A member of the RNA family "Connexin-43 internal ribosome entry site (IRES)" from Neogale vison, 200 nucleotides long.
The match comes from Rfam's covariance-model search (116 bits).
The literature on the family includes a 1999 paper in FEBS Lett by Schiavi et al., "Connexin43 mRNA contains a functional internal ribosome entry site".
Rfam links the family to the GO term ribosome binding.
This family represents the connexin-43 internal ribosome entry site (IRES) which allows cap independent translation during conditions such as heat shock and stress.
RNA sequence: AGCUUUUAUUAGGUAUCAGCAGUUGUCUUUCAUUGGGAAGAAGAGUGAGGAAGGUACCAAAGGGUGUAGCAGACUUUGAAACUUUGGAAAGUGUUGAGUGCUUGAACUUACUUUUCCAUUUUACUUCAUCCUCCAAGGAGUACAAUCACUUGGUGUGCCUUCUUCACUUCUUUUAAGCGAAAGAACAGCCAACAGGCAGC
Number, nucleotide and partner (000 for none) at each position: 001a000002g020003c019004u018005u000006u000007u015008a014009u013010u000011a000012g000013g009014u008015a007016u000017c000018a004019g003020c002021a000022g000023u000024u000025g000026u000027c000028u000029u140030u139031c138032a000033u136034u135035g134036g133037g132038a000039a000040g127041a126042a125043g124044a000045g000046u000047g120048a119049g000050g117051a000052a000053g115054g114055u000056a000057c000058c000059a000060a000061a000062g000063g000064g000065u000066g000067u000068a000069g000070c000071a095072g094073a092074c091075u090076u089077u000078g000079a000080a000081a000082c000083u000084u000085u000086g000087g000088a000089a076090a075091g074092u073093g000094u072095u071096g111097a000098g109099u000100g107101c000102u000103u000104g000105a000106a000107c100108u000109u098110a000111c096112u000113u000114u054115u053116c000117c050118a000119u048120u047121u000122u000123a000124c043125u042126u041127c040128a000129u000130c000131c000132u037133c036134c035135a034136a033137g000138g031139a030140g029141u000142a000143c000144a000145a000146u000147c000148a000149c196150u195151u194152g193153g000154u000155g000156u000157g189158c188159c000160u000161u000162c183163u182164u181165c179166a000167c177168u176169u175170c000171u000172u000173u000174u000175a169176a168177g167178c000179g165180a000181a164182a163183g162184a000185a000186c000187a000188g158189c157190c000191a000192a000193c152194a151195g150196g149197c000198a000199g000200c000